[Rfam]
RNA sequence: GGCAGAUGAUGUCUUUCCUCACGAUGGUCUUCAGAAGCCUGCCAUGGGCACUGCCGAGAAAGCCAGUUGGCAUUGCUGAUGCUGGAAA
Numbered sequence: 001g002g003c004a005g006a007u008g009a010u011g012u013c014u015u016u017c018c019u020c021a022c023g024a025u026g027g028u029c030u031u032c033a034g035a036a037g038c039c040u041g042c043c044a045u046g047g048g049c050a051c052u053g054c055c056g057a058g059a060a061a062g063c064c065a066g067u068u069g070g071c072a073u074u075g076c077u078g079a080u081g082c083u084g085g086a087a088a
Stems, first nucleotide, its partner, number of pairs: 001083004
Shown here is an 88-nucleotide RNA sequence from Heterocephalus glaber, a member of the family "Small nucleolar RNA SNORD35". The family is grouped with related families in Rfam's "SNORD35 clan". It scores 88 bits against the family's covariance model. Gene Ontology terms of the family: nucleolus and RNA processing. Rfam describes the family as follows. U35 is a C/D box snoRNA located in intron 6 of ribosomal protein L13A and intron 3 of ribosomal protein S11 in humans and at homologous positions in mouse and chicken ribosomal protein genes. U35 guides the methylation of 2'-O-ribose sites in 28S rRNA.